[Rfam]
Rfam assigns this 118-nucleotide RNA from Trogon melanurus to the family "U4atac minor spliceosomal RNA". U4atac is an essential component of the minor U12-type spliceosome complex which is required for removal of the rarer class of eukaryotic introns (AT-AC, U12-type). A search with the family's covariance model found it, with a score of 88 bits. Rfam links the family to the GO terms U4atac snRNP, spliceosomal tri-snRNP complex assembly and pre-mRNA 5'-splice site binding. Taxonomically the source falls in Trogon (Eukaryota, Dipnotetrapodomorpha, Tetrapoda, Trogonidae).

RNA sequence: ACCGUCCUUAUCUGGGGGUUGCGCGGCUGCUCAAUGAACGCGUAGUGAGGGCAGCACUGCUAACGCCUCAAACAACACGUUUGGCGUCCGCUUCGCGCGUGGCGCAAUUUUUGGAGCC
Numbered sequence: 001a002c003c004g005u006c007c008u009u010a011u012c013u014g015g016g017g018g019u020u021g022c023g024c025g026g027c028u029g030c031u032c033a034a035u036g037a038a039c040g041c042g043u044a045g046u047g048a049g050g051g052c053a054g055c056a057c058u059g060c061u062a063a064c065g066c067c068u069c070a071a072a073c074a075a076c077a078c079g080u081u082u083g084g085c086g087u088c089c090g091c092u093u094c095g096c097g098c099g100u101g102g103c104g105c106a107a108u109u110u111u112u113g114g115a116g117c118c
Stems, first nucleotide, its partner, number of pairs: 006018004021060003026055007038046002084105005089099003